Shown here is an 86-nucleotide RNA sequence from Anaerobacillus isosaccharinicus, a member of the family "c-di-GMP-I riboswitch aptamer". The match comes from Rfam's covariance-model search (72 bits). NCBI's taxonomy places the organism under Bacteria, Bacillati, Bacillota, Bacilli, Anaerobacillus. Gene Ontology term of the family: cyclic-di-GMP binding. GEMM was predicted in a large-scale screen for bacterial structured RNA regulatory elements. Genes associated with GEMM are involved in a diverse array of functions, including chemotaxis regulation, signal transduction, secretion and chitin.
Nucleotides: 086
Stems, first nucleotide, its partner, number of pairs: 012037002017032006041079003045076003048071003055065004
Number, partner (000 for none) and nucleotide at each position: 001000a002000u003000u004000u005000g006000a007000a008000a009000a010000a011000g012037g013036c014000a015000a016000a017032u018031c019030u020029a021028u022027c023000g024000a025000a026000a027022g028021g029020u030019g031018g032017a033000g034000a035000c036013g037012c038000a039000a040000a041079g042078u043077c044000a045076c046075a047074g048071a049070c050069c051000u052000a053000c054000a055065g056064u057063g058062a059000a060000a061000u062058u063057u064056a065055c066000u067000a068000u069050g070049g071048u072000g073000g074047c075046u076045g077043g078042g079041c080000c081000g082000c083000u084000g085000a086000a
The family's consensus secondary structure is taken from published work.